Background:
MIR854 microRNA precursor family: a 220-nucleotide RNA sequence from Arabidopsis thaliana. Rfam 15.1 lists 167 matches to the family in 2 species.

[Rfam]
RNA sequence: CAGAUGAUAUAGAUGAGGCGGAGUUUGACACGAGCAUGUAUCAUUUCAGCGAGCAUAUACCUCCAUCCAGGGAAAGCAAGAGUUUGAGCUAAGCUCAUAGGAACAACAACAAGCUGCAGAAGUGGUGCAAGAAACAUGAUAAGUUACUCUCCAAGUGCCUCAGGCUAUCAAGUUUCCGAAGGACAAGAUCAGCUGCUCCUCUUCCACUAAAACUAUUCUG
Numbered sequence: 001c002a003g004a005u006g007a008u009a010u011a012g013a014u015g016a017g018g019c020g021g022a023g024u025u026u027g028a029c030a031c032g033a034g035c036a037u038g039u040a041u042c043a044u045u046u047c048a049g050c051g052a053g054c055a056u057a058u059a060c061c062u063c064c065a066u067c068c069a070g071g072g073a074a075a076g077c078a079a080g081a082g083u084u085u086g087a088g089c090u091a092a093g094c095u096c097a098u099a100g101g102a103a104c105a106a107c108a109a110c111a112a113g114c115u116g117c118a119g120a121a122g123u124g125g126u127g128c129a130a131g132a133a134a135c136a137u138g139a140u141a142a143g144u145u146a147c148u149c150u151c152c153a154a155g156u157g158c159c160u161c162a163g164g165c166u167a168u169c170a171a172g173u174u175u176c177c178g179a180a181g182g183a184c185a186a187g188a189u190c191a192g193c194u195g196c197u198c199c200u201c202u203u204c205c206a207c208u209a210a211a212a213c214u215a216u217u218c219u220g
Stems, first nucleotide, its partner, number of pairs: 001220004010209001012207001015204004020199005

The source organism's lineage runs through Eukaryota, Euphyllophyta, Mesangiospermae, Pentapetalae and Arabidopsis. Gene Ontology terms of the family: RISC complex and miRNA-mediated post-transcriptional gene silencing.